[Rfam]
The family of this 170-nucleotide RNA sequence from Simkania sp. is "Lysine riboswitch aptamer". A search with the family's covariance model found it, with a score of 81 bits. Lineage of the source: Bacteria > Chlamydiia > Parachlamydiales > Simkaniaceae > Simkania.
RNA sequence: UCGCCUAGAAGAGGUGCGUUCACCAAGUAACACUGCUAAGGAGUCCAAAUUCCAGUGAUGCAGUGCCAGGGGUCGAAUGCCGAAAUCCUACCAACUUGGAUAAGAUAGGAUUGGGGUUAGUAGCGAAAGCGCUAACACUGUCACGCGAUGCGUGGAGCACUUCGAAUUGA
Numbered sequence: 001u002c003g004c005c006u007a008g009a010a011g012a013g014g015u016g017c018g019u020u021c022a023c024c025a026a027g028u029a030a031c032a033c034u035g036c037u038a039a040g041g042a043g044u045c046c047a048a049a050u051u052c053c054a055g056u057g058a059u060g061c062a063g064u065g066c067c068a069g070g071g072g073u074c075g076a077a078u079g080c081c082g083a084a085a086u087c088c089u090a091c092c093a094a095c096u097u098g099g100a101u102a103a104g105a106u107a108g109g110a111u112u113g114g115g116g117u118u119a120g121u122a123g124c125g126a127a128a129g130c131g132c133u134a135a136c137a138c139u140g141u142c143a144c145g146c147g148a149u150g151c152g153u154g155g156a157g158c159a160c161u162u163c164g165a166a167u168u169g170a
Base pairs, nucleotide, nucleotide: 006165008163009162010161011160016080017079018078019077020076021075024072031065032064033063034062035061036060084112085111086110087109088108089107090106092104113139114138116136117135118134119133120132121131141155142154143153144152145151146150